[Rfam]
RNA: Molybdenum/Tungsten riboswitch aptamer (Moco RNA motif)
RNA sequence: AUAUUUUUUAUUUUCCGAGCUGUAUUACCUAAAUGUAUUUACUGCACACGGUAAUCAUGCCGGGUUCUUCAAUGGAGCCCCGGGUUUAACCGGAAACGGUUAUGCCUCCACUUACUUUUAGGAAAGGAAAAUUUUACGGCAUUUA
Numbered sequence: 001a002u003a004u005u006u007u008u009u010a011u012u013u014u015c016c017g018a019g020c021u022g023u024a025u026u027a028c029c030u031a032a033a034u035g036u037a038u039u040u041a042c043u044g045c046a047c048a049c050g051g052u053a054a055u056c057a058u059g060c061c062g063g064g065u066u067c068u069u070c071a072a073u074g075g076a077g078c079c080c081c082g083g084g085u086u087u088a089a090c091c092g093g094a095a096a097c098g099g100u101u102a103u104g105c106c107u108c109c110a111c112u113u114a115c116u117u118u119u120a121g122g123a124a125a126g127g128a129a130a131a132u133u134u135u136a137c138g139g140c141a142u143u144u145a
Stems, first nucleotide, its partner, number of pairs: 004138001006136001011131006019060002024055006034046003063079005082107004087102006108122002